[Rfam]
RNA sequence: UGUGGUGGUGCUGUAGCAGCACAGAAUGGUUUGUGGGUUACACAGAGAUGCAGGCCGUACUGUGCUGCCGCAGUAACGACU
Numbered sequence: 001u002g003u004g005g006u007g008g009u010g011c012u013g014u015a016g017c018a019g020c021a022c023a024g025a026a027u028g029g030u031u032u033g034u035g036g037g038u039u040a041c042a043c044a045g046a047g048a049u050g051c052a053g054g055c056c057g058u059a060c061u062g063u064g065c066u067g068c069c070g071c072a073g074u075a076a077c078g079a080c081u
Stems, first nucleotide, its partner, number of pairs: 004080001006078001013071002016068009026058010
Description: Rfam assigns this 81-nucleotide RNA sequence from Salvelinus namaycush to the family "mir-15 microRNA precursor family". This family represents the related mir-15a and mir-15b sequences.